[Rfam]
RNA sequence: CUCGGAGGUAGCUAGGGUACCACCCUGUGUUGGCUGUACCUGCGAGUGAACACAGCUGGUGGUAUCUCAGCCACACUGAGACA
Numbered sequence: 001c002u003c004g005g006a007g008g009u010a011g012c013u014a015g016g017g018u019a020c021c022a023c024c025c026u027g028u029g030u031u032g033g034c035u036g037u038a039c040c041u042g043c044g045a046g047u048g049a050a051c052a053c054a055g056c057u058g059g060u061g062g063u064a065u066c067u068c069a070g071c072c073a074c075a076c077u078g079a080g081a082c083a
Base pairs, nucleotide, nucleotide: 008074009073011071012070015068016066017065019063020062022060023059024058025055026054027053029051031049

Shown here is an 83-nucleotide RNA from Rhodnius prolixus, a member of the family "mir-317 microRNA precursor family".
The literature on the family includes a 2007 paper in Genome Res by Stark et al., "Systematic discovery and characterization of fly microRNAs using 12 Drosophila genomes".
It scores 60 bits against the family's covariance model.
The source organism's lineage runs through Eukaryota, Dicondylia, Prosorrhyncha, Heteroptera and Rhodnius.
The family's consensus secondary structure was predicted with RNAalifold.